RNA sequence: CUGGCGGUGAACUCCCACUGGGUCUCCUGGCCGGUGAGCACCUCGGCGCCGAAGUACUCGCCGUUGGCCAGGGUGUCCAGCACGGUCUCGUCGCCGUACUCGCCGCGCCCGACCCGGCUGACCUUGCCGUGCGCGAUGAGGUAGACCUCGUCGGCGGGCCGGCCCAGCUCCACGAUCGUCUCGCCCUGCCGGACCUCGCGCUGCUGGAAGCGGUCGGCGAGGGCGGCCAGGACCGACUCGUCCUCGAAGUCGCGCAGGCCGGGCAGCUCCCGCAGCUCCUGCGGGAUGACCCGGAUGUCCGGGCCGGUGCUGAUGAAGGUCACCCGCCCGUCGCCCAGGGAAUAGGUGAGUCGGCGGUUGACCCGGUACGUGCCCGCCUGGGUCUGCACCCAGGGGAGCUUGCGCAGCAGCCACCGGGGGGAGAUGCCCUGCAUCUGCGGCACGGACUUGGUCGUGGUGGCCAGGUUCCGCGCGGCGCUCGUGCUGAGGCUCUGCCGCUGGUG
Numbered sequence: 001c002u003g004g005c006g007g008u009g010a011a012c013u014c015c016c017a018c019u020g021g022g023u024c025u026c027c028u029g030g031c032c033g034g035u036g037a038g039c040a041c042c043u044c045g046g047c048g049c050c051g052a053a054g055u056a057c058u059c060g061c062c063g064u065u066g067g068c069c070a071g072g073g074u075g076u077c078c079a080g081c082a083c084g085g086u087c088u089c090g091u092c093g094c095c096g097u098a099c100u101c102g103c104c105g106c107g108c109c110c111g112a113c114c115c116g117g118c119u120g121a122c123c124u125u126g127c128c129g130u131g132c133g134c135g136a137u138g139a140g141g142u143a144g145a146c147c148u149c150g151u152c153g154g155c156g157g158g159c160c161g162g163c164c165c166a167g168c169u170c171c172a173c174g175a176u177c178g179u180c181u182c183g184c185c186c187u188g189c190c191g192g193a194c195c196u197c198g199c200g201c202u203g204c205u206g207g208a209a210g211c212g213g214u215c216g217g218c219g220a221g222g223g224c225g226g227c228c229a230g231g232a233c234c235g236a237c238u239c240g241u242c243c244u245c246g247a248a249g250u251c252g253c254g255c256a257g258g259c260c261g262g263g264c265a266g267c268u269c270c271c272g273c274a275g276c277u278c279c280u281g282c283g284g285g286a287u288g289a290c291c292c293g294g295a296u297g298u299c300c301g302g303g304c305c306g307g308u309g310c311u312g313a314u315g316a317a318g319g320u321c322a323c324c325c326g327c328c329c330g331u332c333g334c335c336c337a338g339g340g341a342a343u344a345g346g347u348g349a350g351u352c353g354g355c356g357g358u359u360g361a362c363c364c365g366g367u368a369c370g371u372g373c374c375c376g377c378c379u380g381g382g383u384c385u386g387c388a389c390c391c392a393g394g395g396g397a398g399c400u401u402g403c404g405c406a407g408c409a410g411c412c413a414c415c416g417g418g419g420g421g422a423g424a425u426g427c428c429c430u431g432c433a434u435c436u437g438c439g440g441c442a443c444g445g446a447c448u449u450g451g452u453c454g455u456g457g458u459g460g461c462c463a464g465g466u467u468c469c470g471c472g473c474g475g476c477g478c479u480c481g482u483g484c485u486g487a488g489g490c491u492c493u494g495c496c497g498c499u500g501g502u503g
Base pairs, nucleotide, nucleotide: 006390007389008388009387011385014382015381016380021325022324023322026319027318028316035313037311038310039309040308041307042306045305046304047303049301051299052298054233055232057230058229060227061226062225063224064223065111066110067109075103077102079100080099082097083096084095085094086093118221119220122217123216127212130209132206133204134203135202138199140197143196144195149192154189155188156187157186158185160183162177165174237293240290241289242288244286245285251281252280254278256277257276261270262269331340332339353378354377355376356375357374361371362370391431392430393429394428395427397425399423400422401421403418405416407415437476438475440473443470444469445468446467447465448464449463450462451461452460477502478501480497481496484494486492487491
The record is a 503-nucleotide RNA sequence from Saccharothrix variisporea, which matches "Saccharopolyspora sRNA 350" in Rfam. The family's consensus secondary structure was predicted with RNAfold. A reference for the family is Liu et al. (2013), "Prediction and characterization of small non-coding RNAs related to secondary metabolites in Saccharopolyspora erythraea", PLoS One. The family has 2 seed sequences and 1,170 matches in Rfam 15.1. The family's RNA type in Rfam is antisense RNA.